The record is an 87-nucleotide RNA from Neobacillus mesonae, which matches "c-di-GMP-I riboswitch aptamer" in Rfam. A search with the family's covariance model found it, with a score of 83 bits. Rfam links the family to the GO term cyclic-di-GMP binding. The source organism's lineage runs through Bacteria, Bacillota, Bacilli, Bacillaceae and Neobacillus.

RNA sequence: AAAAAGAAAAGGCAAACUUAUUGAAAAAUAAGGACGCAAAACUACAGGUCUAAGGUGGUUUCUAACUAAGAUGGCUGAGUUACCUAA
Numbered sequence: 001a002a003a004a005a006g007a008a009a010a011g012g013c014a015a016a017c018u019u020a021u022u023g024a025a026a027a028a029u030a031a032g033g034a035c036g037c038a039a040a041a042c043u044a045c046a047g048g049u050c051u052a053a054g055g056u057g058g059u060u061u062c063u064a065a066c067u068a069a070g071a072u073g074g075c076u077g078a079g080u081u082a083c084c085u086a087a
Stems, first nucleotide, its partner, number of pairs: 012037002017032006040081004045077003048072003055066002058063001